[Rfam]
RNA sequence: UCAAUGAUUACUGGGCCAUUUCUCCUUGGGCAGAGUGAUUAAACCUCACUUUGCUGGAUCUAGUUUGCUCUGCCAAAGGAGAUUUGCCCAGCAAUCCACAU
Numbered sequence: 001u002c003a004a005u006g007a008u009u010a011c012u013g014g015g016c017c018a019u020u021u022c023u024c025c026u027u028g029g030g031c032a033g034a035g036u037g038a039u040u041a042a043a044c045c046u047c048a049c050u051u052u053g054c055u056g057g058a059u060c061u062a063g064u065u066u067g068c069u070c071u072g073c074c075a076a077a078g079g080a081g082a083u084u085u086g087c088c089c090a091g092c093a094a095u096c097c098a099c100a101u
Base pairs, nucleotide, nucleotide: 006096007095008094009093011091012090013089014088015087016086018084022081023080024079025078029074030073031072032071033070034069035068036067037066038065

Rfam assigns this 101-nucleotide RNA from Dichanthelium oligosanthes to the family "mir-399 microRNA precursor family". Lineage of the source: Eukaryota > commelinids > Poaceae > Panicodae > Dichanthelium. The literature on the family includes a 2004 paper in Mol Cell by Jones-Rhoades and Bartel, "Computational Identification of Plant MicroRNAs and Their Targets, Including a Stress-Induced miRNA". The match comes from Rfam's covariance-model search (58 bits). About the family: mir-399 was identified in both Arabidopsis thaliana and Oryza sativa computationally and was later experimentally verified. mir-399 is thought to target mRNAs coding for a phosphatase transporter. The mature sequence is excised from the 3' arm of the hairpin.